Description: The family of this 216-nucleotide RNA from Ogataea polymorpha is "Small nucleolar RNA snR191". Rfam classes the family as an H/ACA-box small nucleolar RNA. The literature on the family includes a 2003 paper in RNA by Badis et al., "A snoRNA that guides the two most conserved pseudouridine modifications within rRNA confers a growth advantage in yeast".
[Rfam]
RNA sequence: UACCAAAGUUUUUUGUCAGGAUAUUCCAUCUGCCAAUAUGGUUUAUCUGUUACAACUUUGGGAGAUCAUGUUCGCCAAUCGUCGGUCGGUGUCGUUUUGAUGCUGGCUGACACCCUGCUGUGCUCCGUUUUGGAGCCGGCAACAUGGUGUUUUGGGCCUUUAUGAGUUGAAGGAGUCUUAGUUACCGGCUUCUUCGUAGUAAAAGGCCCAACAUUC
Dot-bracket structure: ..(((((...........(((((..(((..........)))..)))))........)))))...........(((((...(((((((((((((.....))))))))))))).....((((.((((((...))))))))))....)))))...((((.((((......((((((((((.........)))))))))).....)))).))))......